[Rfam]
RNA sequence: ACCUGUUGCGAGCGGACGCGUACGCGUGGCUCGCGGCAUUCAGACACACACCGUGCCACGGGAAGAACGAGGCACUUCUGGGCGUU
Numbered sequence: 001a002c003c004u005g006u007u008g009c010g011a012g013c014g015g016a017c018g019c020g021u022a023c024g025c026g027u028g029g030c031u032c033g034c035g036g037c038a039u040u041c042a043g044a045c046a047c048a049c050a051c052c053g054u055g056c057c058a059c060g061g062g063a064a065g066a067a068c069g070a071g072g073c074a075c076u077u078c079u080g081g082g083c084g085u086u
Stems, first nucleotide, its partner, number of pairs: 004038010017026003053075005059069002
Record summary:
This 86-nucleotide RNA sequence belongs to the Rfam family "nrdJ RNA". It is annotated as a small RNA.